Description: The record is a 75-nucleotide RNA sequence from Galemys pyrenaicus, which matches "Small nucleolar RNA SNORD113/SNORD114 family" in Rfam. About the family: The imprinted human domain at 14q32 contains two clusters of tandemly repeated small nucleolar RNAs named 14q(I) and 14q(II) snoRNAs. These two clusters are named SNORD113 and SNORD114 respectively in the HGNC approved gene symbol nomenclature. The snoRNAs found in both clusters are clearly related and are represented here by a single family. The family has 59 seed sequences and 5,721 matches in Rfam 15.1. Pairs were carried over by alignment from the consensus structure, which is taken from published work. Rfam links the family to the GO terms nucleolus and RNA processing. A reference for the family is Cavaille et al. (2002), "Identification of tandemly-repeated C/D snoRNA genes at the imprinted human 14q32 domain reminiscent of those at the Prader-Willi/Angelman syndrome region", Hum Mol Genet.

RNA sequence: CGGGUCGAUGGUGACAGCUGCUGGCGUCUGACCCGUGGACCACGAAUGGUGCGUGUCUGGAACUCUGAGGUCCGA
Numbered sequence: 001c002g003g004g005u006c007g008a009u010g011g012u013g014a015c016a017g018c019u020g021c022u023g024g025c026g027u028c029u030g031a032c033c034c035g036u037g038g039a040c041c042a043c044g045a046a047u048g049g050u051g052c053g054u055g056u057c058u059g060g061a062a063c064u065c066u067g068a069g070g071u072c073c074g075a
Base pairs, nucleotide, nucleotide: 002073003072004071005070006069